Notes
This 32-nucleotide RNA from Oreocharis arfaki belongs to the Rfam family "Iron response element II". The base pairs follow the family's consensus structure, which is taken from published work. A reference for the family is Koeller et al. (1989), "A cytosolic protein binds to structural elements within the iron regulatory region of the transferrin receptor mRNA", Proc Natl Acad Sci U S A. Rfam classes the family as a cis-regulatory element.
[Rfam]
RNA sequence: GCUCUAUCUGUGGCAGUGUCCCACAACAGUGU
Numbered sequence: 001g002c003u004c005u006a007u008c009u010g011u012g013g014c015a016g017u018g019u020c021c022c023a024c025a026a027c028a029g030u031g032u
Stems, first nucleotide, its partner, number of pairs: 001032002004029002007026001009025003012021002014018001
Rfam describes the family as follows. IRE, TFRC, SLC40A1, SDHB, SLC11A2, CDC42BPA, ACO2, ALAS2_H.SAPIENS, CDC14A, EPAS1, ALAS2, qoxD, Hao1, NDUFS1, transferrin, Aconitate.